RNA sequence: UAUCAGUACAGGUAGAGAUGCACUGUAUACUCGUGUUACCGGACUAUUGUCUAAGCGACUUGUAAAGUCGUCGGCCACGGGGCCGCCACGUGGCGGUUUUUUUUUAA
Number, nucleotide and partner (000 for none) at each position: 001u000002a000003u000004c000005a000006g000007u027008a026009c025010a024011g023012g021013u020014a019015g000016a000017g000018a000019u014020g013021c012022a000023c011024u010025g009026u008027a007028u000029a000030c081031u080032c079033g078034u077035g076036u000037u000038a000039c074040c073041g072042g051043a050044c049045u000046a000047u000048u000049g044050u043051c042052u000053a000054a000055g071056c070057g069058a068059c067060u066061u000062g000063u000064a000065a000066a060067g059068u058069c057070g056071u055072c041073g040074g039075c000076c035077a034078c033079g032080g031081g030082g097083c096084c095085g094086c093087c092088a000089c000090g000091u000092g087093g086094c085095g084096g083097u082098u000099u000100u000101u000102u000103u000104u000105u000106a000107a000

This 107-nucleotide RNA belongs to the Rfam family "DUF3800-I RNA". It is annotated as a small RNA. Rfam's curators put it in the seed alignment. Rfam describes the family as follows. Actinobacteria, Firmicutes, Fusobacteria, Proteobacteria (1 example), Tenericutes (2 examples).